[Rfam]
Annotation: Shown here is a 74-nucleotide RNA from Ornithorhynchus anatinus, a member of the family "mir-1421 microRNA precursor family".
RNA sequence: UGGUGCAAGGAGGUCGUAGGUCAUGCAGAGUGAUGGCGGAAUAUGCUGCACUGCGUGCGACCUCCCUUCACGAC
Numbered sequence: 001u002g003g004u005g006c007a008a009g010g011a012g013g014u015c016g017u018a019g020g021u022c023a024u025g026c027a028g029a030g031u032g033a034u035g036g037c038g039g040a041a042u043a044u045g046c047u048g049c050a051c052u053g054c055g056u057g058c059g060a061c062c063u064c065c066c067u068u069c070a071c072g073a074c
Base pairs, nucleotide, nucleotide: 003071004070005069007067009065010064011063012062013061014060015059016058017057018056020054021053024050025049026048027047